[Rfam]
RNA sequence: UGGCAUGCCAGACUGGCGUGCUGCUUCUCUUUAAAGAGUGUGGAUUUAUCUAUACCAUGUGAUGUGAAUGAAAUGAGAAGUUUCCGGGGCUGCCAACCUCUUGGUUAAGGUUUGCUGGUAGUAUAUUUCUGCGACAAUA
Numbered sequence: 001u002g003g004c005a006u007g008c009c010a011g012a013c014u015g016g017c018g019u020g021c022u023g024c025u026u027c028u029c030u031u032u033a034a035a036g037a038g039u040g041u042g043g044a045u046u047u048a049u050c051u052a053u054a055c056c057a058u059g060u061g062a063u064g065u066g067a068a069u070g071a072a073a074u075g076a077g078a079a080g081u082u083u084c085c086g087g088g089g090c091u092g093c094c095a096a097c098c099u100c101u102u103g104g105u106u107a108a109g110g111u112u113u114g115c116u117g118g119u120a121g122u123a124u125a126u127u128u129c130u131g132c133g134a135c136a137a138u139a
Stems, first nucleotide, its partner, number of pairs: 003060005017042006077132001079130002089119002095112005